[Rfam]
Record summary
Shown here is an 80-nucleotide RNA sequence from Myotis davidii, a member of the family "mir-574 microRNA precursor family". A search with the family's covariance model found it, with a score of 86 bits.
RNA sequence: AGACCUGGAGAGAGAAGCAGGGUCUGAUCCGUAGCUUACAUAGCAGCUGUUGAUCAGCCCUUGCCCUCUCUUUCUCUCCA
Numbered sequence: 001a002g003a004c005c006u007g008g009a010g011a012g013a014g015a016a017g018c019a020g021g022g023u024c025u026g027a028u029c030c031g032u033a034g035c036u037u038a039c040a041u042a043g044c045a046g047c048u049g050u051u052g053a054u055c056a057g058c059c060c061u062u063g064c065c066c067u068c069u070c071u072u073u074c075u076c077u078c079c080a
Base pairs, nucleotide, nucleotide: 008072009071010070011069012068013067014066017064018063019062020061022059024057025056026055027054028053029052032049033048034047035046

On this family, see Lui et al., Cancer Res 2007: "Patterns of known and novel small RNAs in human cervical cancer".